[Rfam]
RNA: Eukaryotic large subunit ribosomal RNA, nucleotides 2561 to 3160
RNA sequence: AAGAAGACCCUGUUGAGCUUGACUCUAGUCUGCCGACUUUGUGAAGAGACAUGAGAGGCGUAGGAUAAGUGGGAGCCCUCGGCCGACGGUGAAAUACCACUCCCAUCGUUUUUUUACUUAUUCAGUGAGGCGGGAAACGACCCGGUACCCCGGGUCACACUUCUGGUCUUAAGCCGGCGGCGGCAAGCCCGUCGUCGGCGAUCCGCUCUGAGACAGUGUCAGGCGGGGAGUUUGACUGGGGCGGUACAUCUGUCAAAGUGUAACGCAGGUGUCCUAAGGUGAGCUCAGCGAGCGACGGAAACCUCGCGUAGAGCAAAAGGGCAAAAGCUCACUUGAUUCGAUUUUCAGUAUGAAUACGGACGCGAAAGCGGGCCUAUCGAUAAUUUUGAACUUGCGAGUUUUCAAGCAAGAGGUGUCAGAAAAGUUAACACAGGGAUAACUGGCUUGUGGCAGCCAAGCGUUCAUAGCGACGUUGCUUUUUGAUCCUUCGAUGUCGGCUCUUCCUAUCAUUGUGAAGCAGAAUUCACCAAGCGUUGGAUUGUUCACCCACUAAUAGGGAACGUGAGCUGGGUUUAGACCGUCGUGAGACAGGUUAGUUUU
Numbered sequence: 001a002a003g004a005a006g007a008c009c010c011u012g013u014u015g016a017g018c019u020u021g022a023c024u025c026u027a028g029u030c031u032g033c034c035g036a037c038u039u040u041g042u043g044a045a046g047a048g049a050c051a052u053g054a055g056a057g058g059c060g061u062a063g064g065a066u067a068a069g070u071g072g073g074a075g076c077c078c079u080c081g082g083c084c085g086a087c088g089g090u091g092a093a094a095u096a097c098c099a100c101u102c103c104c105a106u107c108g109u110u111u112u113u114u115u116a117c118u119u120a121u122u123c124a125g126u127g128a129g130g131c132g133g134g135a136a137a138c139g140a141c142c143c144g145g146u147a148c149c150c151c152g153g154g155u156c157a158c159a160c161u162u163c164u165g166g167u168c169u170u171a172a173g174c175c176g177g178c179g180g181c182g183g184c185a186a187g188c189c190c191g192u193c194g195u196c197g198g199c200g201a202u203c204c205g206c207u208c209u210g211a212g213a214c215a216g217u218g219u220c221a222g223g224c225g226g227g228g229a230g231u232u233u234g235a236c237u238g239g240g241g242c243g244g245u246a247c248a249u250c251u252g253u254c255a256a257a258g259u260g261u262a263a264c265g266c267a268g269g270u271g272u273c274c275u276a277a278g279g280u281g282a283g284c285u286c287a288g289c290g291a292g293c294g295a296c297g298g299a300a301a302c303c304u305c306g307c308g309u310a311g312a313g314c315a316a317a318a319g320g321g322c323a324a325a326a327g328c329u330c331a332c333u334u335g336a337u338u339c340g341a342u343u344u345u346c347a348g349u350a351u352g353a354a355u356a357c358g359g360a361c362g363c364g365a366a367a368g369c370g371g372g373c374c375u376a377u378c379g380a381u382a383a384u385u386u387u388g389a390a391c392u393u394g395c396g397a398g399u400u401u402u403c404a405a406g407c408a409a410g411a412g413g414u415g416u417c418a419g420a421a422a423a424g425u426u427a428a429c430a431c432a433g434g435g436a437u438a439a440c441u442g443g444c445u446u447g448u449g450g451c452a453g454c455c456a457a458g459c460g461u462u463c464a465u466a467g468c469g470a471c472g473u474u475g476c477u478u479u480u481u482g483a484u485c486c487u488u489c490g491a492u493g494u495c496g497g498c499u500c501u502u503c504c505u506a507u508c509a510u511u512g513u514g515a516a517g518c519a520g521a522a523u524u525c526a527c528c529a530a531g532c533g534u535u536g537g538a539u540u541g542u543u544c545a546c547c548c549a550c551u552a553a554u555a556g557g558g559a560a561c562g563u564g565a566g567c568u569g570g571g572u573u574u575a576g577a578c579c580g581u582c583g584u585g586a587g588a589c590a591g592g593u594u595a596g597u598u599u600u
Stems, first nucleotide, its partner, number of pairs: 001600002009434004014430002016426005022231004029223004034218002041117010051106003057103002068101005075084001121212005131205004139156007173199010234247001235245003248270006273372002279332006285312002288307005294302001313322002337360004341355004361370003384411005391406004443484001445482001447481001449477006458468002495570001496568004500562001501559005508533001512527005535549003539545001576594004580589003